[Rfam]
RNA sequence: CACCAAAACUCUUUGUCAGGAUGUUUUUGCUUGUUUUUUCGAAAGGAAAGACCAUUCACAAAAUCGUCUGUUAAAGUUUUGGAAGAUUGAUACUGUUCGCCUUAUCCAUUCCAUCUUCGUUUUGAAGAUACUUUUUUGGAUAAUUUUAGAAAUUCCUUUCGUUUUGAAAGUUUUAUUUUUAAUCUUAAUUUUAGAGCAGGGAGGAUCAUUAGAGUUGAGCAUUAUUUUGUUGAAGUUUCAUCAAGAAGCUUCAAUCAUUUCGUAUAAUUUGCUCGUAGUAUUGAACCUCACAUUU
Numbered sequence: 001c002a003c004c005a006a007a008a009c010u011c012u013u014u015g016u017c018a019g020g021a022u023g024u025u026u027u028u029g030c031u032u033g034u035u036u037u038u039u040c041g042a043a044a045g046g047a048a049a050g051a052c053c054a055u056u057c058a059c060a061a062a063a064u065c066g067u068c069u070g071u072u073a074a075a076g077u078u079u080u081g082g083a084a085g086a087u088u089g090a091u092a093c094u095g096u097u098c099g100c101c102u103u104a105u106c107c108a109u110u111c112c113a114u115c116u117u118c119g120u121u122u123u124g125a126a127g128a129u130a131c132u133u134u135u136u137u138g139g140a141u142a143a144u145u146u147u148a149g150a151a152a153u154u155c156c157u158u159u160c161g162u163u164u165u166g167a168a169a170g171u172u173u174u175a176u177u178u179u180u181a182a183u184c185u186u187a188a189u190u191u192u193a194g195a196g197c198a199g200g201g202a203g204g205a206u207c208a209u210u211a212g213a214g215u216u217g218a219g220c221a222u223u224a225u226u227u228u229g230u231u232g233a234a235g236u237u238u239c240a241u242c243a244a245g246a247a248g249c250u251u252c253a254a255u256c257a258u259u260u261c262g263u264a265u266a267a268u269u270u271g272c273u274c275g276u277a278g279u280a281u282u283g284a285a286c287c288u289c290a291c292a293u294u295u
Stems, first nucleotide, its partner, number of pairs: 003082005019069005025063004030045003034041001093199006102143007113129006148180005156170006201289004206284003216275005223267001226264001229255011
Annotation:
This 295-nucleotide RNA from Naumovozyma castellii belongs to the Rfam family "Small nucleolar RNA snR191". On this family, see Badis et al., RNA 2003: "A snoRNA that guides the two most conserved pseudouridine modifications within rRNA confers a growth advantage in yeast". The source organism's lineage runs through Eukaryota, Fungi, Ascomycota, Saccharomycetales and Naumovozyma. Clan: SNORA74 clan. Rfam classes the family as an H/ACA-box small nucleolar RNA.